[Rfam]
RNA sequence: GAAUUUCGAUUAACUCUCAGUCUCUGACUGAGAAAACUGGAAG
Numbered sequence: 001g002a003a004u005u006u007c008g009a010u011u012a013a014c015u016c017u018c019a020g021u022c023u024c025u026g027a028c029u030g031a032g033a034a035a036a037c038u039g040g041a042a043g
Stems, first nucleotide, its partner, number of pairs: 015033007
Rfam assigns this 43-nucleotide RNA sequence from Shigella dysenteriae to the family "nuoG RNA". The organism belongs to Shigella dysenteriae, within Bacteria.